RNA: Small nucleolar RNA SNORA72
RNA sequence: AUGCGAAUAUAUUCUCGCUGGCUUGAUUUUUGUCACUGGUCAAGUCAGGCUAGACAUUCGCUAGAUUAUUGCUGUGCUGCUUGUCUGCAGGGCAUGUUUGUCAAGUCCUGUUGUAAUGUUUGCCAGCAACAAAU
Number, nucleotide and partner (000 for none) at each position: 001a000002u000003g061004c060005g059006a000007a000008u000009a000010u000011a000012u000013u000014c000015u000016c000017g000018c048019u047020g046021g045022c044023u043024u042025g041026a040027u039028u038029u000030u000031u000032g000033u000034c000035a000036c000037u000038g028039g027040u026041c025042a024043a023044g022045u021046c020047a019048g018049g000050c000051u000052a000053g000054a000055c000056a000057u000058u000059c005060g004061c003062u000063a000064g000065a000066u000067u000068a000069u000070u000071g127072c126073u125074g124075u000076g123077c122078u000079g000080c000081u000082u000083g000084u000085c000086u000087g111088c110089a109090g108091g107092g106093c105094a000095u103096g102097u000098u000099u000100g000101u000102c096103a095104a000105g093106u092107c091108c090109u089110g088111u087112u000113g000114u000115a000116a000117u000118g000119u000120u000121u000122g077123c076124c074125a073126g072127c071128a000129a000130c000131a000132a000133a000134u000